Rfam assigns this 227-nucleotide RNA sequence from Paenibacillus macerans to the family "T-box leader". The literature on the family includes a 2001 paper in RNA by Winkler et al., "The GA motif: an RNA element common to bacterial antitermination systems, rRNA, and eukaryotic RNAs". About the family: Uncharged tRNA acts as the effector for transcription antitermination of genes in the T-box leader family. T-boxes are found upstream of many aminoacyl-tRNA synthetase genes and some amino acid biosynthetic genes usually in Gram-positive bacteria. The anticodon of a specific tRNA base pairs to a specifier sequence within the T-box motif, and the NCCA acceptor tail of the tRNA base pairs to a conserved bulge in the T-box antiterminator hairpin. By type it is a cis-regulatory leader.
[Rfam]
RNA sequence: CGAAAGGCUUUGAAGGAAGGAAGUUGUCGGAAAGCUCCCAGAGAGCCGGUGGUGCUGCAAACCGGUAGCGGAACGAUGAACUUUAGCGAUCCUGAGUCACUGCGUUGAACGUUCAGUAGGCGCAGUCGGUGAACUCCGUUAUCAGUCUGUCAGCGAUGACAAAUGAGGCUGCUUCUGCGAAGGCGCAGCGAAUUAGGGUGGUACCACGAACAACUCUCGUCCCUUAC
Numbered sequence: 001c002g003a004a005a006g007g008c009u010u011u012g013a014a015g016g017a018a019g020g021a022a023g024u025u026g027u028c029g030g031a032a033a034g035c036u037c038c039c040a041g042a043g044a045g046c047c048g049g050u051g052g053u054g055c056u057g058c059a060a061a062c063c064g065g066u067a068g069c070g071g072a073a074c075g076a077u078g079a080a081c082u083u084u085a086g087c088g089a090u091c092c093u094g095a096g097u098c099a100c101u102g103c104g105u106u107g108a109a110c111g112u113u114c115a116g117u118a119g120g121c122g123c124a125g126u127c128g129g130u131g132a133a134c135u136c137c138g139u140u141a142u143c144a145g146u147c148u149g150u151c152a153g154c155g156a157u158g159a160c161a162a163a164u165g166a167g168g169c170u171g172c173u174u175c176u177g178c179g180a181a182g183g184c185g186c187a188g189c190g191a192a193u194u195a196g197g198g199u200g201g202u203a204c205c206a207c208g209a210a211c212a213a214c215u216c217u218c219g220u221c222c223c224u225u226a227c
Stems, first nucleotide, its partner, number of pairs: 007097002015092003026077004034069003045066006100125007127138003168189005174183001195224004206220004
Dot-bracket structure: ......((......(((........((((....(((........((((((..........)))))))))....))))............)))...))..(((((((............))))))).(((......))).............................(((((.(........).))))).....((((.......((((.......))))))))...